Notes:
The family of this 129-nucleotide RNA from Vibrio sp. 99-8-1 is "Histidine operon leader". Its family is annotated with histidine biosynthetic process in the Gene Ontology. It scores 76 bits against the family's covariance model. The base pairs follow the family's consensus structure, which is taken from published work. It is annotated as a cis-regulatory leader. At least 6 amino acid operons are known to be regulated by attenuation. In each a leader sequence of 150-200 bp is found upstream of the first gene in the operon. The literature on the family includes a 1982 paper in Annu Rev Genet by Kolter and Yanofsky, "Attenuation in amino acid biosynthetic operons". The source organism's lineage runs through Bacteria, Pseudomonadota, Vibrionales, Vibrionaceae and Vibrio.

[Rfam]
Nucleotides: 129
Stems, first nucleotide, its partner, number of pairs: 009046002011039004017034005048069007093123013
Number, partner (000 for none) and nucleotide at each position: 001000c002000a003000u004000u005000c006000a007000u008000c009046a010045u011039c012038a013037u014036c015000a016000u017034c018033c019032u020031g021030a022000g023000u024000a025000g026000u027000c028000u029000u030021u031020c032019g033018g034017g035000a036014g037013a038012u039011g040000u041000g042000c043000g044000c045010a046009u047000a048069u049068c050067c051066g052065g053064g054063a055000g056000a057000c058000a059000a060000c061000a062000a063054u064053c065052c066051c067050g068049g069048a070000g071000g072000u073000g074000a075000a076000a077000u078000c079000a080000a081000g082000u083000g084000a085000a086000c087000a088000g089000a090000u091000u092000c093123a094122g095121a096120c097119c098118c099117u100116c101115g102114g103113g104112a105111a106000a107000u108000a109000a110000u111105u112104u113103u114102c115101c116100g117099g118098g119097g120096g121095u122094u123093u124000u125000u126000u127000a128000g129000u